[Rfam]
RNA sequence: AGCCUGCCUUCCCCGCACAGGAAGGCGGAACGAGGACCCGGAGCUCUCUGCCCUGACUGCCCCGGAUCCUCGUCCCUCGGCCGAACGGGGCCGCACACCCCGCGGCCGAUGUCGCUCCGGGCUGCGGUGCCGGGAGGGCUGAGGGUCCCUCCCAGGCGC
Numbered sequence: 001a002g003c004c005u006g007c008c009u010u011c012c013c014c015g016c017a018c019a020g021g022a023a024g025g026c027g028g029a030a031c032g033a034g035g036a037c038c039c040g041g042a043g044c045u046c047u048c049u050g051c052c053c054u055g056a057c058u059g060c061c062c063c064g065g066a067u068c069c070u071c072g073u074c075c076c077u078c079g080g081c082c083g084a085a086c087g088g089g090g091c092c093g094c095a096c097a098c099c100c101c102g103c104g105g106c107c108g109a110u111g112u113c114g115c116u117c118c119g120g121g122c123u124g125c126g127g128u129g130c131c132g133g134g135a136g137g138g139c140u141g142a143g144g145g146u147c148c149c150u151c152c153c154a155g156g157c158g159c
Base pairs, nucleotide, nucleotide: 004028005027006026008024009023010022011021012020032071033070034069035068036067038065039064040063041062043060044059045056046055077109078108079107080106081105082104083103087100088099089098113129114128115127116126118124119123132153133152134151135150136149137148138147